The family of this 80-nucleotide RNA sequence from candidate division MSBL1 archaeon SCGC-AAA259I09 is "tRNA". Pairs were carried over by alignment from the consensus structure, which is taken from published work. It is annotated as a transfer RNA. Rfam links the family to the GO term triplet codon-amino acid adaptor activity. NCBI's taxonomy places the organism under Archaea, Methanobacteriati, Methanobacteriota, candidate division MSBL1.
RNA sequence: GGGGGAGUAGUUCAAUUUUUACCUAGUAGAACGUCCGCCUAGCGAGCGGAAGGGUGGGGGUGCAAGUCCCCUCUCCUCCA
Numbered sequence: 001g002g003g004g005g006a007g008u009a010g011u012u013c014a015a016u017u018u019u020u021a022c023c024u025a026g027u028a029g030a031a032c033g034u035c036c037g038c039c040u041a042g043c044g045a046g047c048g049g050a051a052g053g054g055u056g057g058g059g060g061u062g063c064a065a066g067u068c069c070c071c072u073c074u075c076c077u078c079c080a
Stems, first nucleotide, its partner, number of pairs: 001079007010032004034050005056072005